[Rfam]
RNA sequence: GUGUUCCCUAGAGUUCCUCUGAGCACUUCAUUAAGGGGAAAUUUGCUUUACUCCUACUGAAGCGUUUGGGGGAACUCCCGGGUUCAU
Numbered sequence: 001g002u003g004u005u006c007c008c009u010a011g012a013g014u015u016c017c018u019c020u021g022a023g024c025a026c027u028u029c030a031u032u033a034a035g036g037g038g039a040a041a042u043u044u045g046c047u048u049u050a051c052u053c054c055u056a057c058u059g060a061a062g063c064g065u066u067u068g069g070g071g072g073a074a075c076u077c078c079c080g081g082g083u084u085c086a087u
Stems, first nucleotide, its partner, number of pairs: 006082003011077010022067002024064001026062005032056002035053001
Notes
The record is an 87-nucleotide RNA from Spinacia oleracea, which matches "mir-395 microRNA precursor family" in Rfam. mir-395 was identified in both Arabidopsis thaliana and Oryza sativa computationally and was later experimentally verified. mir-395 is thought to target mRNAs coding for ATP sulphurylases. A search with the family's covariance model found it, with a score of 62 bits. The source organism's lineage runs through Eukaryota, Streptophytina, Euphyllophyta, Caryophyllales and Spinacia.